[Rfam]
RNA sequence: UCAUGUUCUCGGGGCGGGGUGAAAUUCCCCACCGGCGGUAUGAAGUUUGAUAGUUCAAACUUUGAGCCCGCGAGCGCUUAAAUCUGCAAUUCAGGUUUAAGGUCAGCAGAUCCGGUGCGAUGCCGGAGCCGACGGUAUAGUCCGGAUGGAAGAGAGCGAAA
Numbered sequence: 001u002c003a004u005g006u007u008c009u010c011g012g013g014g015c016g017g018g019g020u021g022a023a024a025u026u027c028c029c030c031a032c033c034g035g036c037g038g039u040a041u042g043a044a045g046u047u048u049g050a051u052a053g054u055u056c057a058a059a060c061u062u063u064g065a066g067c068c069c070g071c072g073a074g075c076g077c078u079u080a081a082a083u084c085u086g087c088a089a090u091u092c093a094g095g096u097u098u099a100a101g102g103u104c105a106g107c108a109g110a111u112c113c114g115g116u117g118c119g120a121u122g123c124c125g126g127a128g129c130c131g132a133c134g135g136u137a138u139a140g141u142c143c144g145g146a147u148g149g150a151a152g153a154g155a156g157c158g159a160a161a
Base pairs, nucleotide, nucleotide: 004158005157006156007155008154009153010152017029018028019027031141032140033131034130035071036070037069038068066129067128074107075106111127112126113125114124115123133144134143135142
FMN riboswitch aptamer (RFN element): a 161-nucleotide RNA from Paenochrobactrum gallinarii. A search with the family's covariance model found it, with a score of 117 bits.